[Rfam]
RNA: Small nucleolar RNA SNORA23
RNA sequence: ACAGAUUGGCCUGAGAACAUUUCCUAAAGUACAGUGCUAAGAUAAAAAGUUGCUGUUUUGCAUUCAGGUCUUGCCAUCCACACAAACAUCACAGCCACAGAGUGAGUUGGGAUCAUAGUACUGGUCUAGUGUUCUCAUUGGAUAUAAUUUACCACUGGCCAGCCUCCAGAUUCCCACACGGGA
Numbered sequence: 001a002c003a004g005a006u007u008g009g010c011c012u013g014a015g016a017a018c019a020u021u022u023c024c025u026a027a028a029g030u031a032c033a034g035u036g037c038u039a040a041g042a043u044a045a046a047a048a049g050u051u052g053c054u055g056u057u058u059u060g061c062a063u064u065c066a067g068g069u070c071u072u073g074c075c076a077u078c079c080a081c082a083c084a085a086a087c088a089u090c091a092c093a094g095c096c097a098c099a100g101a102g103u104g105a106g107u108u109g110g111g112a113u114c115a116u117a118g119u120a121c122u123g124g125u126c127u128a129g130u131g132u133u134c135u136c137a138u139u140g141g142a143u144a145u146a147a148u149u150u151a152c153c154a155c156u157g158g159c160c161a162g163c164c165u166c167c168a169g170a171u172u173c174c175c176a177c178a179c180g181g182g183a
Stems, first nucleotide, its partner, number of pairs: 013092001015090002029083002034078001035076002038073003042069002051062003108176005121162006128156004133147001137145002